[Rfam]
RNA sequence: CGGGUGGGGGAACUGACCCAAAAAAGAAUGAGCCGGCAGCGCCAGUAACCGCGCGGCCGGCAAGC
Dot-bracket structure: ...............................((((((.((............)).))))))....

A member of the RNA family "DnaX ribosomal frameshifting element" from Hafnia alvei, 65 nucleotides long. This family represents a ribosomal frameshifting element found in the mRNA of the dnaX gene in E. coli. The dnaX gene has two encoded products tau and gamma which are produced in a 1:1 ratio. The gamma protein is synthesised due to programmed frameshifting and is shorter than tau. The two products of the dnaX gene are DNA polymerase III subunits. Taxonomically the source falls in Hafnia alvei (Bacteria, Gammaproteobacteria, Enterobacterales, Hafnia). By type it is a frameshift element.